Record summary
Shown here is a 240-nucleotide RNA from Amborella trichopoda, a member of the family "MIR8562 microRNA precursor family".
RNA sequence: UUUUCUACAAAUCGAAAUAAUCUGAAAUUUAGAGCGUGUGUUCAUCAAAAAUAGGCAAAUCUACUUAAAAUAUCAAAAAAAUAUUUCACAUGAAGCAAAUUGACUAAAAUACUCCCGAAAAGUUUCAAGGGCAUUUUGGUCAAUGUUUUUUAGGAAUUAUUUUUUUUAUAUUUUUAUUAGGUGUGCCUCACUAAGAUGUACACACACUCCAAAUUUCAAAUUAUUCCGAUUGGUAGAAAA
Numbered sequence: 001u002u003u004u005c006u007a008c009a010a011a012u013c014g015a016a017a018u019a020a021u022c023u024g025a026a027a028u029u030u031a032g033a034g035c036g037u038g039u040g041u042u043c044a045u046c047a048a049a050a051a052u053a054g055g056c057a058a059a060u061c062u063a064c065u066u067a068a069a070a071u072a073u074c075a076a077a078a079a080a081a082u083a084u085u086u087c088a089c090a091u092g093a094a095g096c097a098a099a100u101u102g103a104c105u106a107a108a109a110u111a112c113u114c115c116c117g118a119a120a121a122g123u124u125u126c127a128a129g130g131g132c133a134u135u136u137u138g139g140u141c142a143a144u145g146u147u148u149u150u151u152a153g154g155a156a157u158u159a160u161u162u163u164u165u166u167u168a169u170a171u172u173u174u175u176a177u178u179a180g181g182u183g184u185g186c187c188u189c190a191c192u193a194a195g196a197u198g199u200a201c202a203c204a205c206a207c208u209c210c211a212a213a214u215u216u217c218a219a220a221u222u223a224u225u226c227c228g229a230u231u232g233g234u235a236g237a238a239a240a
Stems, first nucleotide, its partner, number of pairs: 001240008010231005016225006023218008032209003036205006043198003061180003067174007075166006096145001099144012112131003117124002
A search with the family's covariance model found it, with a score of 211 bits.